[Rfam]
RNA sequence: GCUCUCCCAGCUCUGCACAGUCACACCUGCGCUAACACGUGUGGCUUUCGUAACGGUGAGAGAGAGAAAGGGUCUCCUCCGGGCCUCGGAUCGGCCUCCCUGUGGCCUUUCUUUCCUGGAGGGGAGCGACAAGC
Numbered sequence: 001g002c003u004c005u006c007c008c009a010g011c012u013c014u015g016c017a018c019a020g021u022c023a024c025a026c027c028u029g030c031g032c033u034a035a036c037a038c039g040u041g042u043g044g045c046u047u048u049c050g051u052a053a054c055g056g057u058g059a060g061a062g063a064g065a066g067a068a069a070g071g072g073u074c075u076c077c078u079c080c081g082g083g084c085c086u087c088g089g090a091u092c093g094g095c096c097u098c099c100c101u102g103u104g105g106c107c108u109u110u111c112u113u114u115c116c117u118g119g120a121g122g123g124g125a126g127c128g129a130c131a132a133g134c
Stems, first nucleotide, its partner, number of pairs: 002066005008060001011058001013056003019046008074124005080118003088112003093107004

The family of this 134-nucleotide RNA sequence from Orycteropus afer is "Small nucleolar RNA SNORA64/SNORA10 family". NCBI's taxonomy places the organism under Eukaryota, Metazoa, Vertebrata, Gnathostomata, Orycteropus afer. Rfam 15.1 lists 703 matches to the family in 311 species. For this family Rfam cites "Nucleolar localization signals of box H/ACA small nucleolar RNAs" (Narayanan et al., EMBO J, 1999). This family belongs to the H/ACA class of small nucleolar RNAs (snoRNAs) which act as guides in the the modification of uridines to pseudouridines. This family includes the human snoRNAs U64 and ACA10 and mouse MBI-29.